Record summary
The record is a 75-nucleotide sequence from Rousettus aegyptiacus, which matches "Small nucleolar RNA ZL2" in Rfam. Rfam classes the family as a C/D-box small nucleolar RNA. A reference for the family is Kishore et al. (2013), "Insights into snoRNA biogenesis and processing from PAR-CLIP of snoRNA core proteins and small RNA sequencing", Genome Biol. The family's consensus secondary structure was predicted with RNAfold. The match comes from Rfam's covariance-model search (76 bits).

[Rfam]
RNA sequence: GGCUUCAAGUGAUGGAACUAUGACCGGGGAGUACUGUGACCAAACUGGGGUGUAUUCGUACUGUCUGAUGGGGCC
Numbered sequence: 001g002g003c004u005u006c007a008a009g010u011g012a013u014g015g016a017a018c019u020a021u022g023a024c025c026g027g028g029g030a031g032u033a034c035u036g037u038g039a040c041c042a043a044a045c046u047g048g049g050g051u052g053u054a055u056u057c058g059u060a061c062u063g064u065c066u067g068a069u070g071g072g073g074c075c
Stems, first nucleotide, its partner, number of pairs: 001075007011065005017059002020055003024049002027046002